[Rfam]
RNA: Vault RNA
Organism: Sparus aurata
RNA sequence: GCACUGGUUUUGCUCCGCGGUGACUUCCCUCUCAAAUCUACUUGGGAGCUUCCGCCGUCUCUAUCCCUCCCUGGGAUCCAACCGCGGGCGCUCUCCAGUGUCUUC
Numbered sequence: 001g002c003a004c005u006g007g008u009u010u011u012g013c014u015c016c017g018c019g020g021u022g023a024c025u026u027c028c029c030u031c032u033c034a035a036a037u038c039u040a041c042u043u044g045g046g047a048g049c050u051u052c053c054g055c056c057g058u059c060u061c062u063a064u065c066c067c068u069c070c071c072u073g074g075g076a077u078c079c080a081a082c083c084g085c086g087g088g089c090g091c092u093c094u095c096c097a098g099u100g101u102c103u104u105c
Stems, first nucleotide, its partner, number of pairs: 002100006012089004017085004026076004